[Rfam]
RNA: U12 minor spliceosomal RNA
Organism: Genlisea aurea
RNA sequence: UUGCCUUAAACUAAUGAGUAAGGAAAACAAUGCGAGCGGUGAGAACCGGUCGCUGCGCUGUUAAAACAAUAUCUUGGCGCAUUAAUUUAUGGAGGGUCGAUAGGCUGGCCGAGUGCUGACGCUGCUUACUUUUGCAGAACUCACUUGUGCGGGCCUCCCC
Numbered sequence: 001u002u003g004c005c006u007u008a009a010a011c012u013a014a015u016g017a018g019u020a021a022g023g024a025a026a027a028c029a030a031u032g033c034g035a036g037c038g039g040u041g042a043g044a045a046c047c048g049g050u051c052g053c054u055g056c057g058c059u060g061u062u063a064a065a066a067c068a069a070u071a072u073c074u075u076g077g078c079g080c081a082u083u084a085a086u087u088u089a090u091g092g093a094g095g096g097u098c099g100a101u102a103g104g105c106u107g108g109c110c111g112a113g114u115g116c117u118g119a120c121g122c123u124g125c126u127u128a129c130u131u132u133u134g135c136a137g138a139a140c141u142c143a144c145u146u147g148u149g150c151g152g153g154c155c156u157c158c159c160c
Stems, first nucleotide, its partner, number of pairs: 004023005032053004037048003054081007095160002099157001102156005108150001110147002113144003122137004